[Rfam]
RNA sequence: CAGCAUGAUAGAGGCGCGGAGGACAUGAGUACGGCUGCUGUAAGCCCAGGGCAUGGGGAGCGGCCUGAAAGGGGAUUCCGCCGAGGCGGGGAGGCCUGUGCCCAGGCUCCUUUUGCCGGGCCCCGGGAGAAGAUCCCGGGGACUGUCGCCCCAUAUUCCGGGGCGGAGCGCUGUCUAUGAU
Numbered sequence: 001c002a003g004c005a006u007g008a009u010a011g012a013g014g015c016g017c018g019g020a021g022g023a024c025a026u027g028a029g030u031a032c033g034g035c036u037g038c039u040g041u042a043a044g045c046c047c048a049g050g051g052c053a054u055g056g057g058g059a060g061c062g063g064c065c066u067g068a069a070a071g072g073g074g075a076u077u078c079c080g081c082c083g084a085g086g087c088g089g090g091g092a093g094g095c096c097u098g099u100g101c102c103c104a105g106g107c108u109c110c111u112u113u114u115g116c117c118g119g120g121c122c123c124c125g126g127g128a129g130a131a132g133a134u135c136c137c138g139g140g141g142a143c144u145g146u147c148g149c150c151c152c153a154u155a156u157u158c159c160g161g162g163g164c165g166g167a168g169c170g171c172u173g174u175c176u177a178u179g180a181u
Base pairs, nucleotide, nucleotide: 007175008174009173010172011171016081017080018079019078020077021076024073033065034064035063036062037061038060039059085117086116087115088114089112090111091110093108094107095106096105118144119143121141122140123139124138125137126136127135128134146166147165148164149163150162151161152160

Rfam assigns this 181-nucleotide sequence from Hungateiclostridiaceae bacterium KB18 to the family "Lysine riboswitch aptamer". About the family: Riboswitches are metabolite binding domains within certain messenger RNAs that serve as precision sensors for their corresponding targets. Allosteric rearrangement of mRNA structure is mediated by ligand binding, and this results in modulation of gene expression. This family includes riboswitches that sense lysine in a number of genes involved in lysine metabolism, including lysC.